Shown here is a 98-nucleotide RNA from Gossypium australe, a member of the family "MIR390 microRNA precursor family". For this family Rfam cites "Expression of Arabidopsis MIRNA genes" (Xie et al., Plant Physiol, 2005). The family has 16 seed sequences and 649 matches in Rfam 15.1. The source organism's lineage runs through Eukaryota, Magnoliopsida, Pentapetalae, malvids and Gossypium.
[Rfam]
RNA sequence: UAGAAGAAUCUGUUAAGCUCAGGAGGGAUAGCGCCAUGGAUGAUCUUCAGUCUGAUCCUCAUUAGCGCUAUCUAUCCUGAGUUACAUGGCUUCUUCUU
Number, nucleotide and partner (000 for none) at each position: 001u000002a000003g000004a000005a000006g000007a000008a000009u000010c089011u000012g000013u000014u000015a000016a083017g082018c081019u080020c079021a078022g077023g076024a075025g000026g073027g072028a071029u070030a069031g068032c067033g066034c065035c000036a000037u000038g000039g000040a000041u000042g000043a000044u000045c000046u000047u000048c000049a000050g000051u000052c000053u000054g000055a000056u000057c000058c000059u000060c000061a000062u000063u000064a000065g034066c033067g032068c031069u030070a029071u028072c027073u026074a000075u024076c023077c022078u021079g020080a019081g018082u017083u016084a000085c000086a000087u000088g000089g010090c000091u000092u000093c000094u000095u000096c000097u000098u000